A member of the RNA family "Plastid-clpP 5UTR RNA" from Acer yangbiense, 69 nucleotides long. It is annotated as a cis-regulatory element. The family's consensus secondary structure was predicted with LocARNA. Rfam's curators write: Plastid clpP is a non-coding RNA (ncRNA) recognised in plastids. It was found in the prime untranslated region (5UTR) of a protease complex subunit (clpP) in plastids, suggesting a posible cis-regulatory function. NCBI's taxonomy places the organism under Eukaryota, Viridiplantae, Euphyllophyta, Spermatophyta, Acer.
RNA sequence: AAUUUGGUUCAUAGGAUAAAAGAGAAACAGAUCUAUUCUAUACUCGAUAAGUACCAAUACACAAUGGGG
Numbered sequence: 001a002a003u004u005u006g007g008u009u010c011a012u013a014g015g016a017u018a019a020a021a022g023a024g025a026a027a028c029a030g031a032u033c034u035a036u037u038c039u040a041u042a043c044u045c046g047a048u049a050a051g052u053a054c055c056a057a058u059a060c061a062c063a064a065u066g067g068g069g
Stems, first nucleotide, its partner, number of pairs: 003022002009016002043068003051060003